[Rfam]
RNA: permuted transfer-messenger RNA
RNA sequence: GGCGAUAAACGGCACGUGGAAUAAGUGUAGUGGACCCGGGGGCAGUACCCGGCGUCUCCACCAGACACUCCCCGCGACGCCCCUUCGGGGCAGGGGAGCAUGGGGACGAAACAGGCUCGACACGCAUGGUAAAGACCUGCCUUUUGCCCGGCAUUGUACCGCCGUUAUCGGGCUAACUCACAAGUGCCAACGAUAACUCUGAGGUGCUCGCUGUCGCUGCAUAA
Numbered sequence: 001g002g003c004g005a006u007a008a009a010c011g012g013c014a015c016g017u018g019g020a021a022u023a024a025g026u027g028u029a030g031u032g033g034a035c036c037c038g039g040g041g042g043c044a045g046u047a048c049c050c051g052g053c054g055u056c057u058c059c060a061c062c063a064g065a066c067a068c069u070c071c072c073c074g075c076g077a078c079g080c081c082c083c084u085u086c087g088g089g090g091c092a093g094g095g096g097a098g099c100a101u102g103g104g105g106a107c108g109a110a111a112c113a114g115g116c117u118c119g120a121c122a123c124g125c126a127u128g129g130u131a132a133a134g135a136c137c138u139g140c141c142u143u144u145u146g147c148c149c150g151g152c153a154u155u156g157u158a159c160c161g162c163c164g165u166u167a168u169c170g171g172g173c174u175a176a177c178u179c180a181c182a183a184g185u186g187c188c189a190a191c192g193a194u195a196a197c198u199c200u201g202a203g204g205u206g207c208u209c210g211c212u213g214u215c216g217c218u219g220c221a222u223a224a
Stems, first nucleotide, its partner, number of pairs: 001148005014138001016136002026126003030123003036052005053108007149164004